[Rfam]
RNA sequence: CUACAUACAGAAGAAGUUGCCAAUCUCAUGAGCGUUUCCGGCCCGUCGAUUCUACCUGCAACUAUCGGGGGAGAAGAAAAAAGAAGAAAGUCAAAAGUCCAGAUGACAGAGUCGAGGAAGGCACGGGGAAGUCUCGUACGGCGCACAAUCGUAACCGAAGUUCUGAGACUAGGGCCUUUUCGACGUCUUUGCAUGCAAAUAUUGUUGGUUUUGGAAUUCGUUUUGGGACCCAUCUCGUGUUGGAGUCAGAGUUUCGUACUCGUCCGAGGCCAUUCUCGAUCACAUGAUGCGUCAAAGUGCGAAGAGGAGGUUUCCUUUUUGAAAGAAUCUUCUCACUAUUGGCUUGAGAGGGCAGGCCCAUCUAUGACAAGGUAGCCCUGGUUGUCCUCGUGCCCGCAAUGGUAGGAGGACAACCCCCCAUCUUUCUGGGG
Numbered sequence: 001c002u003a004c005a006u007a008c009a010g011a012a013g014a015a016g017u018u019g020c021c022a023a024u025c026u027c028a029u030g031a032g033c034g035u036u037u038c039c040g041g042c043c044c045g046u047c048g049a050u051u052c053u054a055c056c057u058g059c060a061a062c063u064a065u066c067g068g069g070g071g072a073g074a075a076g077a078a079a080a081a082a083g084a085a086g087a088a089a090g091u092c093a094a095a096a097g098u099c100c101a102g103a104u105g106a107c108a109g110a111g112u113c114g115a116g117g118a119a120g121g122c123a124c125g126g127g128g129a130a131g132u133c134u135c136g137u138a139c140g141g142c143g144c145a146c147a148a149u150c151g152u153a154a155c156c157g158a159a160g161u162u163c164u165g166a167g168a169c170u171a172g173g174g175c176c177u178u179u180u181c182g183a184c185g186u187c188u189u190u191g192c193a194u195g196c197a198a199a200u201a202u203u204g205u206u207g208g209u210u211u212u213g214g215a216a217u218u219c220g221u222u223u224u225g226g227g228a229c230c231c232a233u234c235u236c237g238u239g240u241u242g243g244a245g246u247c248a249g250a251g252u253u254u255c256g257u258a259c260u261c262g263u264c265c266g267a268g269g270c271c272a273u274u275c276u277c278g279a280u281c282a283c284a285u286g287a288u289g290c291g292u293c294a295a296a297g298u299g300c301g302a303a304g305a306g307g308a309g310g311u312u313u314c315c316u317u318u319u320u321g322a323a324a325g326a327a328u329c330u331u332c333u334c335a336c337u338a339u340u341g342g343c344u345u346g347a348g349a350g351g352g353c354a355g356g357c358c359c360a361u362c363u364a365u366g367a368c369a370a371g372g373u374a375g376c377c378c379u380g381g382u383u384g385u386c387c388u389c390g391u392g393c394c395c396g397c398a399a400u401g402g403u404a405g406g407a408g409g410a411c412a413a414c415c416c417c418c419c420a421u422c423u424u425u426c427u428g429g430g431g
Base pairs, nucleotide, nucleotide: 227247228246229245230243231242232241249261250260251259252258
Shown here is a 431-nucleotide part of an RNA from Claviceps pusilla, a member of the family "Ascomycota telomerase RNA".
Taxonomically the source falls in Claviceps (Eukaryota, leotiomyceta, Hypocreomycetidae, Clavicipitaceae).
Pairs were carried over by alignment from the consensus structure.
Its Rfam clan is "Telomerase clan".